[Rfam]
RNA: nhaA-I RNA
RNA sequence: GGGUUCGGAACUGCGGGUGCAUUUCCGGAGGAUUUUUAGAUGGUCGGGCCGCCAUCU
Numbered sequence: 001g002g003g004u005u006c007g008g009a010a011c012u013g014c015g016g017g018u019g020c021a022u023u024u025c026c027g028g029a030g031g032a033u034u035u036u037u038a039g040a041u042g043g044u045c046g047g048g049c050c051g052c053c054a055u056c057u
Stems, first nucleotide, its partner, number of pairs: 005028006012021001038057007